[Rfam]
About this RNA
7SK RNA: a 309-nucleotide RNA from Marmota monax. From the family's description: 7SK was discovered as an abundant small nuclear RNA in the mid-70s but a possible function has only recently been suggested. For this family Rfam cites "Transcription: surprising role for an elusive small nuclear RNA" (Blencowe, Curr Biol, 2002). The family's RNA type in Rfam is non-coding RNA gene.

RNA sequence: GGAUGUGAGGGCGAUCUGGCUGCGACAUCUGUCACCCCAUUGAUCGCCAGGGUUGAUUCGGCUGAUCUGGCUGGCUAGGCGGGUGUCCCCUUCCUCCCUCACCGCUCCAUGUGCGUCCCUCCCGAAGCUGAGCGCUCGGUCGAAGAGGACGACCUUCCCCGAUAGAGGAGGACCGUUCUUCGGUCAAGGGUAUACGAGUAGCUGCGCUCCCCUGCUAGAACCUCCAAACAAGCUCUCAAAAUAAUCCUGAGCUAAGAGAAUAGAGUUUAUCUGUGCAAAAUAAAUUAACAGACCAGCAUGUUGGUAUGU
Number, nucleotide and partner (000 for none) at each position: 001g108002g107003a106004u000005g102006u101007g100008a099009g098010g097011g096012c000013g093014a092015u000016c000017u000018g090019g089020c000021u000022g000023c000024g087025a086026c085027a084028u083029c082030u081031g080032u079033c078034a000035c074036c073037c070038c069039a068040u000041u000042g067043a066044u065045c064046g062047c061048c060049a000050g000051g000052g000053u000054u000055g000056a000057u000058u000059c000060g048061g047062c046063u000064g045065a044066u043067c042068u039069g038070g037071c000072u000073g036074g035075c000076u000077a000078g033079g032080c031081g030082g029083g028084u027085g026086u025087c024088c000089c019090c018091u000092u014093c013094c000095u000096c011097c010098c009099u008100c007101a006102c005103c000104g000105c000106u003107c002108c001109a000110u000111g000112u000113g000114c000115g000116u171117c170118c168119c167120u166121c165122c139123c138124g137125a136126a000127g135128c134129u000130g000131a000132g000133c000134g128135c127136u125137c124138g123139g122140u162141c161142g160143a000144a000145g000146a000147g158148g157149a156150c000151g000152a000153c000154c000155u000156u149157c148158c147159c000160c142161g141162a140163u000164a000165g121166a120167g119168g118169a000170g117171g116172a000173c000174c000175g000176u000177u000178c000179u000180u000181c000182g000183g000184u000185c000186a000187a000188g000189g000190g000191u000192a000193u000194a000195c000196g000197a000198g000199u000200a000201g271202c000203u269204g000205c000206g000207c265208u264209c000210c000211c000212c263213u262214g261215c000216u000217a000218g000219a000220a000221c000222c256223u255224c000225c000226a000227a000228a000229c249230a248231a000232g246233c000234u000235c000236u000237c000238a000239a000240a000241a000242u000243a000244a000245u000246c232247c000248u230249g229250a000251g000252c000253u000254a000255a223256g222257a000258g000259a000260a000261u214262a213263g212264a208265g207266u000267u000268u000269a203270u000271c201272u000273g000274u000275g000276c000277a000278a000279a000280a000281u000282a000283a000284a000285u000286u000287a000288a000289c000290a000291g000292a000293c000294c000295a000296g000297c000298a000299u000300g000301u000302u000303g000304g000305u000306a000307u000308g000309u000